[Rfam]
RNA: Flavo-1 RNA
RNA sequence: ACAUAGCCCCGAUGGAAGCGACAUCCUUUUUUUGGUGGCUGAGCGGAGCCGAAGCUACCAAAAAAAGAUAUAGCGGACAGCGGGCGAGGAU
Numbered sequence: 001a002c003a004u005a006g007c008c009c010c011g012a013u014g015g016a017a018g019c020g021a022c023a024u025c026c027u028u029u030u031u032u033u034g035g036u037g038g039c040u041g042a043g044c045g046g047a048g049c050c051g052a053a054g055c056u057a058c059c060a061a062a063a064a065a066a067g068a069u070a071u072a073g074c075g076g077a078c079a080g081c082g083g084g085c086g087a088g089g090a091u
Base pairs, nucleotide, nucleotide: 009083010082011081013079014078018074019073023069024068025067029064030063031062032061033060034059035058036057037056038055039054040053